This 246-nucleotide RNA from Ktedonobacter racemifer belongs to the Rfam family "HNH endonuclease-associated RNA and ORF (HEARO) RNA". Rfam classes the family as a non-coding RNA gene. A search with the family's covariance model found it, with a score of 120 bits. Pairs were carried over by alignment from the consensus structure, which is taken from published work. The literature on the family includes a 2009 paper in Nature by Weinberg et al., "Exceptional structured noncoding RNAs revealed by bacterial metagenome analysis".

[Rfam]
RNA sequence: GUCAGGUACCCCAUGCCUAAAGGCAGGGGCUUGUGAAAGCAAGCCCGGACCUGUCCAGACUUAACCAGAAUCUUCUACUUCGGUAGGAGGUUAUCAGGCUACGAUAGAGGUGAAGUGUUCAAGUUCCUACCUACGGGUGCGUGCCAGCCGGUAGCUCUAGAAUCUCUGAGUUAAACAGUCAUACGGGGUUGAAGACAGUGCUCAGGGAAAAGUACCGCCCUCUAUCAUUGUCGAGGCAAACAUCAC
Numbered sequence: 001g002u003c004a005g006g007u008a009c010c011c012c013a014u015g016c017c018u019a020a021a022g023g024c025a026g027g028g029g030c031u032u033g034u035g036a037a038a039g040c041a042a043g044c045c046c047g048g049a050c051c052u053g054u055c056c057a058g059a060c061u062u063a064a065c066c067a068g069a070a071u072c073u074u075c076u077a078c079u080u081c082g083g084u085a086g087g088a089g090g091u092u093a094u095c096a097g098g099c100u101a102c103g104a105u106a107g108a109g110g111u112g113a114a115g116u117g118u119u120c121a122a123g124u125u126c127c128u129a130c131c132u133a134c135g136g137g138u139g140c141g142u143g144c145c146a147g148c149c150g151g152u153a154g155c156u157c158u159a160g161a162a163u164c165u166c167u168g169a170g171u172u173a174a175a176c177a178g179u180c181a182u183a184c185g186g187g188g189u190u191g192a193a194g195a196c197a198g199u200g201c202u203c204a205g206g207g208a209a210a211a212g213u214a215c216c217g218c219c220c221u222c223u224a225u226c227a228u229u230g231u232c233g234a235g236g237c238a239a240a241c242a243u244c245a246c
Base pairs, nucleotide, nucleotide: 001055003053004052005051006050007049010029011028012026016023017022030043031042032041033040058232059231060230063100065098066097103226104225105224106223107222108221109220110219125161126160131154132153133152134151136149137148138147142239143237144236145235163208164207165206166205167204168203169202170201171200175199176198178196179195180194182192